[Rfam]
A member of the RNA family "Selenocysteine insertion sequence 1" from Esox lucius, 70 nucleotides long. NCBI's taxonomy places the organism under Eukaryota, Actinopteri, Clupeocephala, Esociformes, Esox. The base pairs follow the family's consensus structure, which is taken from published work. By type it is a cis-regulatory element.
RNA sequence: CUUUUAUUAAAUGAAGACAUCCUUUGAAACCAAACCUUUUGUGAGAGGGAUAUCUGAUGUAAUAUAAAAG
Numbered sequence: 001c002u003u004u005u006a007u008u009a010a011a012u013g014a015a016g017a018c019a020u021c022c023u024u025u026g027a028a029a030c031c032a033a034a035c036c037u038u039u040u041g042u043g044a045g046a047g048g049g050a051u052a053u054c055u056g057a058u059g060u061a062a063u064a065u066a067a068a069a070g
Stems, first nucleotide, its partner, number of pairs: 001070005016054002019051007031041003